[Rfam]
RNA: mir-2807 microRNA precursor family
Organism: Bombyx mori
RNA sequence: UUAAAUCAAAUUUGUAUGGAGUUGAAACGUUUGUCUACGUUUGCCGCUAGGGGCGCUGUUCUAUCUCCAUACAAGUUUGAGUUA
Numbered sequence: 001u002u003a004a005a006u007c008a009a010a011u012u013u014g015u016a017u018g019g020a021g022u023u024g025a026a027a028c029g030u031u032u033g034u035c036u037a038c039g040u041u042u043g044c045c046g047c048u049a050g051g052g053g054c055g056c057u058g059u060u061c062u063a064u065c066u067c068c069a070u071a072c073a074a075g076u077u078u079g080a081g082u083u084a
Stems, first nucleotide, its partner, number of pairs: 008078009018068001020066002023063002026060004034052003039047002